[Rfam]
RNA: Bacteroidete tryptophan peptide leader RNA
Organism: Apibacter muscae
RNA sequence: UUUGUUAUCAUUAAGAUUUAAAAGUGAAAACUAUAUUAAACAUAUCAUGGUGGUGGUGCUUUCAAUUUCAAAAAUUGUGAGUGAAUCUUGCUAUGUUGAUAAUUAUAAAUAACAGAAGCCUAUC
Numbered sequence: 001u002u003u004g005u006u007a008u009c010a011u012u013a014a015g016a017u018u019u020a021a022a023a024g025u026g027a028a029a030a031c032u033a034u035a036u037u038a039a040a041c042a043u044a045u046c047a048u049g050g051u052g053g054u055g056g057u058g059c060u061u062u063c064a065a066u067u068u069c070a071a072a073a074a075u076u077g078u079g080a081g082u083g084a085a086u087c088u089u090g091c092u093a094u095g096u097u098g099a100u101a102a103u104u105a106u107a108a109a110u111a112a113c114a115g116a117a118g119c120c121u122a123u124c
Base pairs, nucleotide, nucleotide: 036108037107038106040104043101044100045099046098047097049092050091051090052089056086057085059083061081063077065075066074067073